The family of this 106-nucleotide RNA from Clostridium collagenovorans is "TPP riboswitch aptamer (THI element)". Taxonomically the source falls in Clostridium collagenovorans (Bacteria, Bacillota, Clostridiaceae, Clostridium). From the family's description: Vitamin B(1) in its active form thiamin pyrophosphate (TPP) is an essential coenzyme that is synthesised by coupling of pyrimidine and thiazole moieties in bacteria.

[Rfam]
RNA sequence: AAUAAAUGCUAGGGGUACCUUAAAUAAGAGGUUGAGAGGAUAAAUUAUCUAACCCUAUGAACCUGAUUUGGUUAAUACCAACGUAGGGAAGCACUUAAUAUAUCUA
Numbered sequence: 001a002a003u004a005a006a007u008g009c010u011a012g013g014g015g016u017a018c019c020u021u022a023a024a025u026a027a028g029a030g031g032u033u034g035a036g037a038g039g040a041u042a043a044a045u046u047a048u049c050u051a052a053c054c055c056u057a058u059g060a061a062c063c064u065g066a067u068u069u070g071g072u073u074a075a076u077a078c079c080a081a082c083g084u085a086g087g088g089a090a091g092c093a094c095u096u097a098a099u100a101u102a103u104c105u106a
Stems, first nucleotide, its partner, number of pairs: 007093004011056004017032005039049004062087004068081004
Dot-bracket structure: ......((((((((..(((((......)))))......((((...))))...)))).....((((..((((......))))..))))..)))).............